About this RNA
Shown here is a 190-nucleotide RNA from Millerozyma farinosa, a member of the family "Small nucleolar RNA snR43". The literature on the family includes a 1996 paper in Cell by Balakin et al., "The RNA world of the nucleolus: two major families of small RNAs defined by different box elements with related functions". NCBI's taxonomy places the organism under Eukaryota, Dikarya, Pichiomycetes, Debaryomycetaceae, Millerozyma farinosa. A search with the family's covariance model found it, with a score of 132 bits. The family's consensus secondary structure is taken from published work. Rfam links the family to the GO terms RNA processing and nucleolus. The family's RNA type in Rfam is H/ACA-box small nucleolar RNA. Its Rfam clan is "SNORA9 clan".
[Rfam]
RNA sequence: ACCUCCUAUUUCUGCCCCAUAUUCUGACAUAAGCAAUAGAAUUAUGGGUUCUGGUGAUGGAGAAUAUCAAGCCUGGCGAAGAACAUCAGCAAUUUUGAUACAGCCGCUGGUGUUUCUUUAAAAGGAUCGUGUGGUUUUUCUAUGUCAUGGUUGUAAAUUAGUUUACAGCUAAUAGAAGACCACUACAUUC
Numbered sequence: 001a002c003c004u005c006c007u008a009u010u011u012c013u014g015c016c017c018c019a020u021a022u023u024c025u026g027a028c029a030u031a032a033g034c035a036a037u038a039g040a041a042u043u044a045u046g047g048g049u050u051c052u053g054g055u056g057a058u059g060g061a062g063a064a065u066a067u068c069a070a071g072c073c074u075g076g077c078g079a080a081g082a083a084c085a086u087c088a089g090c091a092a093u094u095u096u097g098a099u100a101c102a103g104c105c106g107c108u109g110g111u112g113u114u115u116c117u118u119u120a121a122a123a124g125g126a127u128c129g130u131g132u133g134g135u136u137u138u139u140c141u142a143u144g145u146c147a148u149g150g151u152u153g154u155a156a157a158u159u160a161g162u163u164u165a166c167a168g169c170u171a172a173u174a175g176a177a178g179a180c181c182a183c184u185a186c187a188u189u190c
Stems, first nucleotide, its partner, number of pairs: 003062004016048004021042005072125003078119005083113008131183004137178005151167001153166005